[Rfam]
RNA sequence: GAAUGGGAGGUGUCCCCAGGACUGUCUGAUCUGAGAAUGGGGAAAUAUUGAGGUCAAUCUCAGGUUCGUCAGCCCAUGAGGCACCUCUUCCGA
Numbered sequence: 001g002a003a004u005g006g007g008a009g010g011u012g013u014c015c016c017c018a019g020g021a022c023u024g025u026c027u028g029a030u031c032u033g034a035g036a037a038u039g040g041g042g043a044a045a046u047a048u049u050g051a052g053g054u055c056a057a058u059c060u061c062a063g064g065u066u067c068g069u070c071a072g073c074c075c076a077u078g079a080g081g082c083a084c085c086u087c088u089u090c091c092g093a
Stems, first nucleotide, its partner, number of pairs: 005090003008086007016078001019075002022072003026068001028066009038056002
Rfam assigns this 93-nucleotide RNA from Leptobrachium leishanense to the family "mir-1388 microRNA precursor family". NCBI's taxonomy places the organism under Eukaryota, Opisthokonta, Chordata, Vertebrata, Leptobrachium. The literature on the family includes a 2009 paper in BMC Genomics by Soares et al., "Parallel DNA pyrosequencing unveils new zebrafish microRNAs". The family's consensus secondary structure was predicted with RNAalifold. Rfam links the family to the GO terms miRNA-mediated post-transcriptional gene silencing and RISC complex.